[Rfam]
Rfam assigns this 70-nucleotide RNA from Eptesicus fuscus to the family "mir-9235 microRNA precursor family".
Pairs were carried over by alignment from the consensus structure, which was predicted with RNAalifold.
Gene Ontology terms of the family: RISC complex and miRNA-mediated post-transcriptional gene silencing.
NCBI's taxonomy places the organism under Eukaryota, Euteleostomi, Laurasiatheria, Vespertilionidae, Eptesicus.
RNA sequence: UUGUAAUUUUGAUGUGGCUGUGGGAAGUGGCAAGUACAUGCAUUUUCCCAUGCUACCAUCUUGGUUCCCU
Numbered sequence: 001u002u003g004u005a006a007u008u009u010u011g012a013u014g015u016g017g018c019u020g021u022g023g024g025a026a027g028u029g030g031c032a033a034g035u036a037c038a039u040g041c042a043u044u045u046u047c048c049c050a051u052g053c054u055a056c057c058a059u060c061u062u063g064g065u066u067c068c069c070u
Stems, first nucleotide, its partner, number of pairs: 005066004011060004015055004020051005025045005